[Rfam]
RNA sequence: CAUGGGUGAACAAACUUGCCAAAUUAAAGUGGCAGGAGACAAUCUGUCUACCUGGCACUUGAACUCUCCCUUGCUGGGA
Numbered sequence: 001c002a003u004g005g006g007u008g009a010a011c012a013a014a015c016u017u018g019c020c021a022a023a024u025u026a027a028a029g030u031g032g033c034a035g036g037a038g039a040c041a042a043u044c045u046g047u048c049u050a051c052c053u054g055g056c057a058c059u060u061g062a063a064c065u066c067u068c069c070c071u072u073g074c075u076g077g078g079a
Stems, first nucleotide, its partner, number of pairs: 029058003033054001037049004